[Rfam]
RNA sequence: CCUUUGGAGUGUUAUACAAACCAGAGUAGCUUGUGCAAAAUGGGACACUAUGAGAAAGGAA
Numbered sequence: 001c002c003u004u005u006g007g008a009g010u011g012u013u014a015u016a017c018a019a020a021c022c023a024g025a026g027u028a029g030c031u032u033g034u035g036c037a038a039a040a041u042g043g044g045a046c047a048c049u050a051u052g053a054g055a056a057a058g059g060a061a
Stems, first nucleotide, its partner, number of pairs: 001059005009048005021043003029036002
Dot-bracket structure: (((((...(((((.......(((.....((....))....))))))))......)))))..
A member of the RNA family "RAGATH-18 RNA", 61 nucleotides long.
The sequence is in the family's curated seed alignment.
It is annotated as a small RNA.
Rfam describes the family as follows. Actinobacteria, Firmicutes, Fusobacteria, Thermotogae (1 example).